The record is an 84-nucleotide sequence from Nannospalax galili, which matches "mir-3473 microRNA precursor family" in Rfam. The family has 5 seed sequences and 1,094 matches in Rfam 15.1. It scores 75 bits against the family's covariance model. NCBI's taxonomy places the organism under Eukaryota, Eumetazoa, Amniota, Euarchontoglires, Nannospalax.
[Rfam]
RNA sequence: ACCACUGAGCCAUCUCUCCAGCCCCAGAAUUUUUUUUUAAGCAUUUAAAAUUUGAAUUUGGGGCUGGAGAGAUGGCUCAGCAGU
Numbered sequence: 001a002c003c004a005c006u007g008a009g010c011c012a013u014c015u016c017u018c019c020a021g022c023c024c025c026a027g028a029a030u031u032u033u034u035u036u037u038u039a040a041g042c043a044u045u046u047a048a049a050a051u052u053u054g055a056a057u058u059u060g061g062g063g064c065u066g067g068a069g070a071g072a073u074g075g076c077u078c079a080g081c082a083g084u
Stems, first nucleotide, its partner, number of pairs: 002083001005080023